[Rfam]
Nucleotides: 052
Base pairs, nucleotide, nucleotide: 006048007047009045010044011043012042014040015039016038018036019035020034021033022031
Number, partner (000 for none) and nucleotide at each position: 001000c002000u003000u004000u005000g006048a007047g008000u009045a010044u011043a012042a013000g014040u015039a016038u017000g018036u019035c020034c021033c022031a023000u024000g025000c026000a027000a028000u029000c030000u031022u032000u033021g034020g035019g036018a037000u038016a039015u040014a041000c042012u043011u044010g045009u046000u047007c048006u049000a050000a051000a052000a

The record is a 52-nucleotide RNA from Camelus dromedarius, which matches "mir-1302 microRNA precursor family" in Rfam. Pairs were carried over by alignment from the consensus structure, which was predicted with WAR. NCBI's taxonomy places the organism under Eukaryota, Deuterostomia, Teleostomi, Theria, Camelus.